Record summary
This 72-nucleotide sequence from Methanospirillum hungatei belongs to the Rfam family "DUF3800-X RNA". Rfam classes the family as a small RNA. The base pairs follow the family's consensus structure, which is taken from published work.
[Rfam]
RNA sequence: AAGUGAGUAAGUCCUCCCUGAAAGAAUGAGGCUGCCGGAUGGUGGAUGGAACAAGUAAGAGAGGGUUCACGA
Numbered sequence: 001a002a003g004u005g006a007g008u009a010a011g012u013c014c015u016c017c018c019u020g021a022a023a024g025a026a027u028g029a030g031g032c033u034g035c036c037g038g039a040u041g042g043u044g045g046a047u048g049g050a051a052c053a054a055g056u057a058a059g060a061g062a063g064g065g066u067u068c069a070c071g072a
Stems, first nucleotide, its partner, number of pairs: 003070004012065005018059002032045005